The record is a 262-nucleotide sequence from Roseburia sp. CAG:197, which matches "Bacterial large signal recognition particle RNA" in Rfam. Its family is annotated with SRP-dependent cotranslational protein targeting to membrane, signal sequence recognition and signal recognition particle, plasma membrane targeting in the Gene Ontology. A search with the family's covariance model found it, with a score of 180 bits. Pairs were carried over by alignment from the consensus structure, which is taken from published work. The literature on the family includes a 2003 paper in Nucleic Acids Res by Rosenblad et al., "SRPDB: Signal Recognition Particle Database".

RNA sequence: CCGAGUAGCCGGGGUGGUAGCGGUACCUUGAACCAACAAUCCGCUAUAGUUGGGGUGAUAUCUCGUAGAGGGUUUCAGCGGUGGAGCUGCCCUCUGUAAGUGGCGUUGACGUCUGGGUCUUACGCAAUGGGAAUCCAUGAACCGGGUCAGGGUAGGAAUACAGCAGCCCUAAGUGGAAGCUCUCAUGUGCCGUAAGGGUGCCUGGAGGGAGUUAACUGCAGAGGUAACGUCUAUUGUGUGUUAUUCGAAGCGGGAUACUCGG
Numbered sequence: 001c002c003g004a005g006u007a008g009c010c011g012g013g014g015u016g017g018u019a020g021c022g023g024u025a026c027c028u029u030g031a032a033c034c035a036a037c038a039a040u041c042c043g044c045u046a047u048a049g050u051u052g053g054g055g056u057g058a059u060a061u062c063u064c065g066u067a068g069a070g071g072g073u074u075u076c077a078g079c080g081g082u083g084g085a086g087c088u089g090c091c092c093u094c095u096g097u098a099a100g101u102g103g104c105g106u107u108g109a110c111g112u113c114u115g116g117g118u119c120u121u122a123c124g125c126a127a128u129g130g131g132a133a134u135c136c137a138u139g140a141a142c143c144g145g146g147u148c149a150g151g152g153u154a155g156g157a158a159u160a161c162a163g164c165a166g167c168c169c170u171a172a173g174u175g176g177a178a179g180c181u182c183u184c185a186u187g188u189g190c191c192g193u194a195a196g197g198g199u200g201c202c203u204g205g206a207g208g209g210a211g212u213u214a215a216c217u218g219c220a221g222a223g224g225u226a227a228c229g230u231c232u233a234u235u236g237u238g239u240g241u242u243a244u245u246c247g248a249a250g251c252g253g254g255a256u257a258c259u260c261g262g
Base pairs, nucleotide, nucleotide: 001262002261003260004259005258006257007256008056009055010054011029012028013027014026015025016024018022033053034052035051036050037049061255062254063253064252065251066250070246071245072244073243076240077239078237079236080235081234082233083232084231085230088226089225092223093222094221095220096219097218100216101215102213103212104211110208112206113205114204115203116202117201118200119196120195121194122193123192124191125187126186128185129184130183131182132181134177135176136175137174138173144169145168146167147166152161153160154159